Shown here is a 152-nucleotide sequence from Klebsiella pneumoniae, a member of the family "Leucine operon leader".
It scores 94 bits against the family's covariance model.
A reference for the family is Kolter and Yanofsky (1982), "Attenuation in amino acid biosynthetic operons", Annu Rev Genet.
Rfam describes the family as follows. At least 6 amino acid operons are known to be regulated by attenuation. In each a leader sequence of 150-200 bp is found upstream of the first gene in the operon. This leader sequence can assume two different secondary structures known as the terminator and the anti-terminator structure. In each case the leader also codes for very short peptide sequence that is rich in the end product amino acid of the operon. The terminator structure is recognised as a termination signal for RNA polymerase and the operon is not transcribed. This structure forms when the cell has an excess of the regulatory amino acid and ribosome movement over the leader transcript is not impeded. When there is a deficiency of the charged tRNA of the regulatory amino acid the ribosome translating the leader peptide stalls and the antiterminator structure can form. This allows RNA polymerase to transcribe the operon. In the Rfam alignment the consensus structure is of the terminator. The alternative consensus structure is the antiterminator structure.
The source organism's lineage runs through Bacteria, Pseudomonadati, Enterobacteriaceae, Klebsiella pneumoniae complex and Klebsiella pneumoniae subsp. pneumoniae.
By type it is a cis-regulatory leader.
RNA sequence: CUGGAGUUUGACGCAAUGAUUCGCACCGCUCGUAUCACCAGCCUACUACUACUAAACGCAUGCCAUUUGCGCGGUAGGCUGUUGGGCGACGUUCAGCGUUAAGUCAUCUUCCAGCAAGACUAUAAAACCCGCGCCUUGGCGCGGGUUUUUUU
Numbered sequence: 001c002u003g004g005a006g007u008u009u010g011a012c013g014c015a016a017u018g019a020u021u022c023g024c025a026c027c028g029c030u031c032g033u034a035u036c037a038c039c040a041g042c043c044u045a046c047u048a049c050u051a052c053u054a055a056a057c058g059c060a061u062g063c064c065a066u067u068u069g070c071g072c073g074g075u076a077g078g079c080u081g082u083u084g085g086g087c088g089a090c091g092u093u094c095a096g097c098g099u100u101a102a103g104u105c106a107u108c109u110u111c112c113a114g115c116a117a118g119a120c121u122a123u124a125a126a127a128c129c130c131g132c133g134c135c136u137u138g139g140c141g142c143g144g145g146u147u148u149u150u151u152u
Stems, first nucleotide, its partner, number of pairs: 004110001006108001009106003015100004027088006049077005057071004124149011